[Rfam]
RNA sequence: UUUUAAAUAUAAAUAUGUCCUAUGCAAUAUCUAGGACAUACUUAUAAUAGAA
Numbered sequence: 001u002u003u004u005a006a007a008u009a010u011a012a013a014u015a016u017g018u019c020c021u022a023u024g025c026a027a028u029a030u031c032u033a034g035g036a037c038a039u040a041c042u043u044a045u046a047a048u049a050g051a052a
Base pairs, nucleotide, nucleotide: 006048008046009045010044011043012042014040015039016038018036019035020034021033
RNA: mir-1302 microRNA precursor family
Organism: Microcebus murinus